The record is an 89-nucleotide RNA from Geotrypetes seraphini, which matches "mir-204 microRNA precursor family" in Rfam.
RNA sequence: GUGUGUCUUGUAAGCUUCCCUUUGUCAUCCUAUGCCUGAGUCAUAAAAAGGAGGCUGGGAUGGUAAGGAGAGGCCAACAUGACUUCCAG
Numbered sequence: 001g002u003g004u005g006u007c008u009u010g011u012a013a014g015c016u017u018c019c020c021u022u023u024g025u026c027a028u029c030c031u032a033u034g035c036c037u038g039a040g041u042c043a044u045a046a047a048a049a050g051g052a053g054g055c056u057g058g059g060a061u062g063g064u065a066a067g068g069a070g071a072g073g074c075c076a077a078c079a080u081g082a083c084u085u086c087c088a089g
Stems, first nucleotide, its partner, number of pairs: 017071002020068003024064002028060005034055004
A reference for the family is Chen et al. (2005), "The developmental miRNA profiles of zebrafish as determined by small RNA cloning", Genes Dev.